[Rfam]
Archaeal large subunit ribosomal RNA: a 579-nucleotide part of an RNA from Methanimicrococcus blatticola. The organism belongs to Methanimicrococcus, within Archaea.
RNA sequence: CCUCUGGGGGGAAGUGAAGACCCCAUAGAGCUUUACUGCAGCCUGUCGUUGAGUUGUGAUUUCGAAUGUACAGUGUAGGUAGGAGACGUCGAAGCGGGCGCGCCAGCGUUCGUGGAGUCAAAAGUGGGACACUACCCUUUUGGAAUUACGAUUCUCACUCUCUUUUGAGAGGACCCCGAUAGGUGGGCAGUUUGCCUGGGGCGGGACGCCCUUGAAAAGAUAUCAAGGGUGCGCAAUGGUUGACUCAAGUGGGUCGGAAACUCACUGAAGAGUGCAAGAGCAUAAGUCAGCCUGACGUUAUUUCGCACAACAAGGAAUGACGAGACGAAAGUCGGUUCUAGCGAACUUUUGAGCCCGCUUGGUGCGGGCCAAAAACUACAGAAAAGUUACCUUGGGGAUAAUUGUGUCGUUGCCGGCAAGAGUACAUAUCGACCCGGCAGCUUGCUACUUCGAUGUCGGUUCUUUCCAUCCUGGCCGUGCAGCAGCGGCCAAGGGUGAGGUUGUUCGCCUAUUAAAGGAGAUCGUGAGCUGGGUUUAGACCGUCGUGAGACAGGUUGGUUACUAUCUACCAGAGGUGUU
Numbered sequence: 001c002c003u004c005u006g007g008g009g010g011g012a013a014g015u016g017a018a019g020a021c022c023c024c025a026u027a028g029a030g031c032u033u034u035a036c037u038g039c040a041g042c043c044u045g046u047c048g049u050u051g052a053g054u055u056g057u058g059a060u061u062u063c064g065a066a067u068g069u070a071c072a073g074u075g076u077a078g079g080u081a082g083g084a085g086a087c088g089u090c091g092a093a094g095c096g097g098g099c100g101c102g103c104c105a106g107c108g109u110u111c112g113u114g115g116a117g118u119c120a121a122a123a124g125u126g127g128g129a130c131a132c133u134a135c136c137c138u139u140u141u142g143g144a145a146u147u148a149c150g151a152u153u154c155u156c157a158c159u160c161u162c163u164u165u166u167g168a169g170a171g172g173a174c175c176c177c178g179a180u181a182g183g184u185g186g187g188c189a190g191u192u193u194g195c196c197u198g199g200g201g202c203g204g205g206a207c208g209c210c211c212u213u214g215a216a217a218a219g220a221u222a223u224c225a226a227g228g229g230u231g232c233g234c235a236a237u238g239g240u241u242g243a244c245u246c247a248a249g250u251g252g253g254u255c256g257g258a259a260a261c262u263c264a265c266u267g268a269a270g271a272g273u274g275c276a277a278g279a280g281c282a283u284a285a286g287u288c289a290g291c292c293u294g295a296c297g298u299u300a301u302u303u304c305g306c307a308c309a310a311c312a313a314g315g316a317a318u319g320a321c322g323a324g325a326c327g328a329a330a331g332u333c334g335g336u337u338c339u340a341g342c343g344a345a346c347u348u349u350u351g352a353g354c355c356c357g358c359u360u361g362g363u364g365c366g367g368g369c370c371a372a373a374a375a376c377u378a379c380a381g382a383a384a385a386g387u388u389a390c391c392u393u394g395g396g397g398a399u400a401a402u403u404g405u406g407u408c409g410u411u412g413c414c415g416g417c418a419a420g421a422g423u424a425c426a427u428a429u430c431g432a433c434c435c436g437g438c439a440g441c442u443u444g445c446u447a448c449u450u451c452g453a454u455g456u457c458g459g460u461u462c463u464u465u466c467c468a469u470c471c472u473g474g475c476c477g478u479g480c481a482g483c484a485g486c487g488g489c490c491a492a493g494g495g496u497g498a499g500g501u502u503g504u505u506c507g508c509c510u511a512u513u514a515a516a517g518g519a520g521a522u523c524g525u526g527a528g529c530u531g532g533g534u535u536u537a538g539a540c541c542g543u544c545g546u547g548a549g550a551c552a553g554g555u556u557g558g559u560u561a562c563u564a565u566c567u568a569c570c571a572g573a574g575g576u577g578u579u
Stems, first nucleotide, its partner, number of pairs: 001575007010567003014562002022396004027392002029388005035191004042183007051154016068137001078136005085119003097110005158171004194207001195205003208230006233336002239291006245271002248266006272281002296322009324333001326331001347374005353369005406445002409443001410440007420430002457532001458530004462524001463521005470495002474489005498510004538556004542551003